[Rfam]
RNA sequence: AAGUCCGCGCGUAACUGGCGAAUCGGUGGGGUACCACGAGGGAGCGCGCGGAAACGGACAUAACCGCUCGCCUGGGUAAAAGUG
Numbered sequence: 001a002a003g004u005c006c007g008c009g010c011g012u013a014a015c016u017g018g019c020g021a022a023u024c025g026g027u028g029g030g031g032u033a034c035c036a037c038g039a040g041g042g043a044g045c046g047c048g049c050g051g052a053a054a055c056g057g058a059c060a061u062a063a064c065c066g067c068u069c070g071c072c073u074g075g076g077u078a079a080a081a082g083u084g
Stems, first nucleotide, its partner, number of pairs: 004052009015041002017072005026037004061079001063077003
The family of this 84-nucleotide RNA sequence from Paenibacillus ginsengarvi is "ZMP/ZTP riboswitch aptamer (pfl RNA motif)". NCBI's taxonomy places the organism under Bacteria, Bacillati, Bacillota, Caryophanales, Paenibacillus. Gene Ontology terms of the family: one-carbon metabolic process and regulation of purine nucleotide biosynthetic process. Pairs were carried over by alignment from the consensus structure, which is taken from published work.